[Rfam]
RNA sequence: AUAAUGAUACUUCCGUCCAGCCACAGCCCUCCCUGAAAGGAGGAUGACGCAAUGGGGGCGGCCGCAGGAGAUCCCUGCGAGGGUGGAAUUCCCAUGA
Number, nucleotide and partner (000 for none) at each position: 001a000002u000003a000004a000005u000006g000007a000008u000009a000010c000011u000012u094013c061014c060015g059016u058017c057018c056019a000020g000021c000022c000023a000024c000025a000026g000027c000028c000029c000030u000031c000032c000033c000034u000035g000036a000037a000038a000039g000040g000041a000042g000043g000044a000045u000046g000047a000048c000049g000050c000051a000052a000053u000054g000055g000056g018057g017058g016059c015060g014061g013062c000063c079064g078065c000066a076067g075068g074069a000070g000071a000072u000073c000074c068075c067076u066077g000078c064079g063080a000081g093082g092083g091084u000085g000086g000087a000088a000089u000090u000091c083092c082093c081094a012095u000096g000097a000

Description
Shown here is a 97-nucleotide RNA sequence, a member of the family "pemK RNA". By type it is a cis-regulatory element. It is one of the family's seed sequences.